[Rfam]
RNA sequence: CAUGGACCCGCAUCUUCCGCGGGUGGCUAUGCCGGGCGCCUAUCCCCCGGCCCAUC
Numbered sequence: 001c002a003u004g005g006a007c008c009c010g011c012a013u014c015u016u017c018c019g020c021g022g023g024u025g026g027c028u029a030u031g032c033c034g035g036g037c038g039c040c041u042a043u044c045c046c047c048c049g050g051c052c053c054a055u056c
Stems, first nucleotide, its partner, number of pairs: 006024006031051006
Shown here is a 56-nucleotide sequence from Fulvimarina pelagi, a member of the family "sul1 RNA". By type it is a riboswitch. Pairs were carried over by alignment from the consensus structure, which is taken from published work. The organism belongs to Fulvimarina pelagi, within Bacteria. Rfam's curators put it in the seed alignment.